[Rfam]
This 200-nucleotide RNA from Paspalum vaginatum belongs to the Rfam family "MIR1435 microRNA precursor family".
It scores 95 bits against the family's covariance model.
NCBI's taxonomy places the organism under Eukaryota, Streptophytina, Panicoideae, Andropogonodae, Paspalum.

RNA sequence: UUUUUUAGUACUAAGUCAAACUAUCUUAAGCUUGACCAAGUUUAUAGAGAAGAGCAUCAGCAUCUGUGACAUCAAAGAGAUAUACUAUGAAAACAUGUUCCAUGACGAAUCUAAUGAUACUUAUUUGGUACCAUGAGUAUUGGUACUUUUCUGUACAAACUUGGCCAAAUUUAAGAUGGCUUGACUUAGGACAAAGUAAG
Numbered sequence: 001u002u003u004u005u006u007a008g009u010a011c012u013a014a015g016u017c018a019a020a021c022u023a024u025c026u027u028a029a030g031c032u033u034g035a036c037c038a039a040g041u042u043u044a045u046a047g048a049g050a051a052g053a054g055c056a057u058c059a060g061c062a063u064c065u066g067u068g069a070c071a072u073c074a075a076a077g078a079g080a081u082a083u084a085c086u087a088u089g090a091a092a093a094c095a096u097g098u099u100c101c102a103u104g105a106c107g108a109a110u111c112u113a114a115u116g117a118u119a120c121u122u123a124u125u126u127g128g129u130a131c132c133a134u135g136a137g138u139a140u141u142g143g144u145a146c147u148u149u150u151c152u153g154u155a156c157a158a159a160c161u162u163g164g165c166c167a168a169a170u171u172u173a174a175g176a177u178g179g180c181u182u183g184a185c186u187u188a189g190g191a192c193a194a195a196g197u198a199a200g
Stems, first nucleotide, its partner, number of pairs: 005195002008192002011189009021179006032168003036164001045155002048152005056144002059141002062138002065135004072128005
Dot-bracket structure: ....((.((.(((((((((.((((((.....(((.(........((.(((((...((.((.((.((((...(((((...............................................)))))...)))).)).)).))...))))).))........).))).....)))))).))))))))).)).)).....